[Rfam]
Shown here is an 88-nucleotide RNA sequence from Eubacterium ruminantium, a member of the family "RAGATH-35 RNA". The family's consensus secondary structure is taken from published work. It scores 74 bits against the family's covariance model.

RNA sequence: AUAUCUGUUAGCAGCGUUGCUUUGACGCUUCGGAAUGGCUAAUAGACUUCUCAUCAACGGUUUUGUUUCCCUUAUCCGUAUGAGUGAU
Number, nucleotide and partner (000 for none) at each position: 001a000002u000003a000004u000005c000006u044007g043008u042009u041010a040011g039012c038013a000014g028015c027016g026017u025018u000019g000020c000021u000022u000023u000024g000025a017026c016027g015028c014029u000030u000031c000032g000033g000034a000035a000036u000037g000038g012039c011040u010041a009042a008043u007044a006045g000046a000047c000048u000049u000050c000051u000052c000053a000054u000055c000056a000057a000058c000059g000060g000061u000062u000063u000064u000065g000066u000067u000068u000069c000070c000071c000072u000073u000074a000075u000076c000077c000078g000079u000080a000081u000082g000083a000084g000085u000086g000087a000088u000